[Rfam]
RNA sequence: ACUGCUGAGUCAUCUCUCCAGCCCCUUUAAAGAAAUUUAUAAAAACACCAUCUGGCAGAGCUGGAGAGAUGGCUCAGCAGU
Numbered sequence: 001a002c003u004g005c006u007g008a009g010u011c012a013u014c015u016c017u018c019c020a021g022c023c024c025c026u027u028u029a030a031a032g033a034a035a036u037u038u039a040u041a042a043a044a045a046c047a048c049c050a051u052c053u054g055g056c057a058g059a060g061c062u063g064g065a066g067a068g069a070u071g072g073c074u075c076a077g078c079a080g081u
Stems, first nucleotide, its partner, number of pairs: 002080021024058001
This 81-nucleotide RNA from Nannospalax galili belongs to the Rfam family "mir-3473 microRNA precursor family". Rfam 15.1 lists 1,094 matches to the family in 20 species. The organism belongs to Nannospalax, within Eukaryota. The family's consensus secondary structure was predicted with RNAalifold.